[Rfam]
RNA sequence: UAAGCUUAUAGCUCAGGGGGGAAAGGCCAAAAUCUGUGGCCUUUACCUCUUUAACUGGGCUGUACGCACC
Numbered sequence: 001u002a003a004g005c006u007u008a009u010a011g012c013u014c015a016g017g018g019g020g021g022a023a024a025g026g027c028c029a030a031a032a033u034c035u036g037u038g039g040c041c042u043u044u045a046c047c048u049c050u051u052u053a054a055c056u057g058g059g060c061u062g063u064a065c066g067c068a069c070c
Base pairs, nucleotide, nucleotide: 007064008063009062010061011060012059013058014057015056016055017050018049019048020047021046026040027039028038029037
Dot-bracket structure: ......(((((((((((((((....((((.......)))).....)))))....))))))))))......